[Rfam]
RNA sequence: UGCCUUUGUGUUGCCCAUUCAUUCCUGUCCAGAAUGAAUGUGGUGUCAAAUAAGGCAAACAGGAAUUCUUGCUGAAACUGUUUAAGGAGCUGGUUAUUUACCUUUCUCCUCCCUGUUUUUGCAAGGACAAAA
Numbered sequence: 001u002g003c004c005u006u007u008g009u010g011u012u013g014c015c016c017a018u019u020c021a022u023u024c025c026u027g028u029c030c031a032g033a034a035u036g037a038a039u040g041u042g043g044u045g046u047c048a049a050a051u052a053a054g055g056c057a058a059a060c061a062g063g064a065a066u067u068c069u070u071g072c073u074g075a076a077a078c079u080g081u082u083u084a085a086g087g088a089g090c091u092g093g094u095u096a097u098u099u100a101c102c103u104u105u106c107u108c109c110u111c112c113c114u115g116u117u118u119u120u121g122c123a124a125g126g127a128c129a130a131a132a
Stems, first nucleotide, its partner, number of pairs: 002056005009048002012045004016040008068125004074118003086110002088107002092102002
Background: Rfam assigns this 132-nucleotide RNA sequence from Phaethon lepturus to the family "Small nucleolar RNA SNORA13". Its Rfam clan is "SNORA13 clan". ACA13 is a member of the H/ACA class of snoRNA that guide the sites of modification of uridines to pseudouridines. Rfam 15.1 lists 1,034 matches to the family in 605 species.